[Rfam]
The record is a 249-nucleotide RNA from Bacillus gobiensis, which matches "BsrG" in Rfam. Lineage of the source: Bacteria > Bacillati > Bacilli > Bacillaceae > Bacillus. Pairs were carried over by alignment from the consensus structure, which was predicted with WAR.
RNA sequence: GCAUUUGCAUUAUUCGUUCUAUGGGUGGUCGGCUAACCCUUUGCAAAGGGGGUGAUGCCUAGUGACAGUAUUCGAGAGUUUAACGAUUGCAAUUUCUUUUGCGACGCUUCUCAUUGCUGUUCUUUCAUUUCACGAUAAAAAAUAGACCUCCCUUGUCCGGAAAAUGAGGGAGAGGUCUAUUGAUUUGGAUGGCCGAUCCCGUCAUUAGGACAAGAUGCAAAUGCCGCCGCAAGUGCCCCAGCGCUUGCG
Numbered sequence: 001g002c003a004u005u006u007g008c009a010u011u012a013u014u015c016g017u018u019c020u021a022u023g024g025g026u027g028g029u030c031g032g033c034u035a036a037c038c039c040u041u042u043g044c045a046a047a048g049g050g051g052g053u054g055a056u057g058c059c060u061a062g063u064g065a066c067a068g069u070a071u072u073c074g075a076g077a078g079u080u081u082a083a084c085g086a087u088u089g090c091a092a093u094u095u096c097u098u099u100u101g102c103g104a105c106g107c108u109u110c111u112c113a114u115u116g117c118u119g120u121u122c123u124u125u126c127a128u129u130u131c132a133c134g135a136u137a138a139a140a141a142a143u144a145g146a147c148c149u150c151c152c153u154u155g156u157c158c159g160g161a162a163a164a165u166g167a168g169g170g171a172g173a174g175g176u177c178u179a180u181u182g183a184u185u186u187g188g189a190u191g192g193c194c195g196a197u198c199c200c201g202u203c204a205u206u207a208g209g210a211c212a213a214g215a216u217g218c219a220a221a222u223g224c225c226g227c228c229g230c231a232a233g234u235g236c237c238c239c240a241g242c243g244c245u246u247g248c249g
Stems, first nucleotide, its partner, number of pairs: 001224005007218003011214001014196003018192002021154001023152003027147001029145001034055001036053006064121007078090001100113002103110001164184002197212001200209001228249009
Description: bsrE, bsrG and bsrH pair through intermolecular interactions with antisense sRNAs. They form type I toxin/antitoxin system that includes an mRNA encoding for a short, toxic peptide (bsrE, bsrG and bsrH) and an antitoxin that is comprised of an antisense RNA. bsrG encodes a 39-amino-acid toxin, and the 180 nucleotide antisense sRNA called SR4 acts as the antitoxin (they overlap by 123 nucleotides). SR4 interaction with the 3'UTR of bsrG RNA promotes bsrG degradation and inhibits its translation. By type it is a small RNA.